Rfam assigns this 128-nucleotide RNA sequence from Cajanus cajan to the family "Small nucleolar RNA U19". The family has 3 seed sequences and 421 matches in Rfam 15.1. Rfam classes the family as an H/ACA-box small nucleolar RNA. For this family Rfam cites "Experimental RNomics: identification of 140 candidates for small non-messenger RNAs in the plant Arabidopsis thaliana" (Marker et al., Curr Biol, 2002).
[Rfam]
RNA sequence: AAGCGGCUUAGUUAGGAGGCGCAAAUCAAUCGGAACCAAAUUCACUUUUGCUUCCAUUCAGAGAAAGGCCUUUUGAAGGGACUUUUGUCUUCUCCUCUCACUUGUCCCUCAAGCACCCUUUCACAUUC
Numbered sequence: 001a002a003g004c005g006g007c008u009u010a011g012u013u014a015g016g017a018g019g020c021g022c023a024a025a026u027c028a029a030u031c032g033g034a035a036c037c038a039a040a041u042u043c044a045c046u047u048u049u050g051c052u053u054c055c056a057u058u059c060a061g062a063g064a065a066a067g068g069c070c071u072u073u074u075g076a077a078g079g080g081a082c083u084u085u086u087g088u089c090u091u092c093u094c095c096u097c098u099c100a101c102u103u104g105u106c107c108c109u110c111a112a113g114c115a116c117c118c119u120u121u122c123a124c125a126u127u128c
Stems, first nucleotide, its partner, number of pairs: 004021002007018003033054003037050001063122006072113004077109006
Dot-bracket structure: ...((.(((......))).))...........(((.(............).)))........((((((...((((.((((((.....................))))))))))...))))))......